The family of this 80-nucleotide RNA from Roseburia sp. CAG:45 is "ZMP/ZTP riboswitch aptamer (pfl RNA motif)". The family's consensus secondary structure is taken from published work. A search with the family's covariance model found it, with a score of 56 bits. The organism belongs to Roseburia, within Bacteria.

RNA sequence: AAACCGUUAUAUGACUGACGGAUAAGUGGAAAAACCACAUGAAGUAUAACGAAAACGAGCCGACCGUCUGGGCGAUGAAC
Number, nucleotide and partner (000 for none) at each position: 001a000002a000003a000004c000005c051006g050007u049008u048009a047010u046011a045012u044013g000014a000015c041016u000017g068018a067019c066020g065021g064022a000023u000024a000025a000026g038027u037028g036029g035030a000031a000032a000033a000034a000035c029036c028037a027038c026039a000040u000041g015042a000043a000044g012045u011046a010047u009048a008049a007050c006051g005052a000053a000054a000055a000056c000057g000058a000059g073060c072061c071062g000063a000064c021065c020066g019067u018068c017069u000070g000071g061072g060073c059074g000075a000076u000077g000078a000079a000080c000